[Rfam]
Shown here is a 49-nucleotide RNA from Plasticicumulans lactativorans, a member of the family "Guanidine-II riboswitch aptamer (mini-ykkC)".
Rfam links the family to the GO term regulation of gene expression.
About the family: Simpler in structure and has fewer highly conserved nucleotide positions than the ykkC-yxkD leader.
The organism belongs to Plasticicumulans, within Bacteria.
The match comes from Rfam's covariance-model search (47 bits).
Pairs were carried over by alignment from the consensus structure, which is taken from published work.
RNA sequence: GCGGCGGGACGACCCGUCGCUGCCUCGCGUGCAUCCGGGGACGACCCCG
Numbered sequence: 001g002c003g004g005c006g007g008g009a010c011g012a013c014c015c016g017u018c019g020c021u022g023c024c025u026c027g028c029g030u031g032c033a034u035c036c037g038g039g040g041a042c043g044a045c046c047c048c049g
Stems, first nucleotide, its partner, number of pairs: 001020008036049005